[Rfam]
RNA sequence: UUAAAUGUUUUCUAGGGUUCCGCAAUCAUUGUAUUGGACUGGUCCGAGAGAAAACUCACGCUUAGACGUGCCACGGAAGGAUAAAAGCCUGGGAGAU
Numbered sequence: 001u002u003a004a005a006u007g008u009u010u011u012c013u014a015g016g017g018u019u020c021c022g023c024a025a026u027c028a029u030u031g032u033a034u035u036g037g038a039c040u041g042g043u044c045c046g047a048g049a050g051a052a053a054a055c056u057c058a059c060g061c062u063u064a065g066a067c068g069u070g071c072c073a074c075g076g077a078a079g080g081a082u083a084a085a086a087g088c089c090u091g092g093g094a095g096a097u
Base pairs, nucleotide, nucleotide: 007055008054009053010052011051012050015045016044020042021041022039023036024035025034026033057070058069059068060067072092074095078090079089080088
RNA: Guanidine-I riboswitch aptamer